Rfam assigns this 68-nucleotide sequence from Salibacterium salarium to the family "Bacillaceae-1 RNA".
By type it is a small RNA.
RNA sequence: AGUAGAGGAUCUUCUGCUAACAACGCGAACGUCCUGUUCGCAACGCAGAAGUCACCACAUCCUGUGGA
Dot-bracket structure: ..........(((((((........(((((.....)))))....)))))))...((((.....)))).

Background
The base pairs follow the family's consensus structure, which is taken from published work. Rfam 15.1 lists 5,721 matches to the family in 247 species.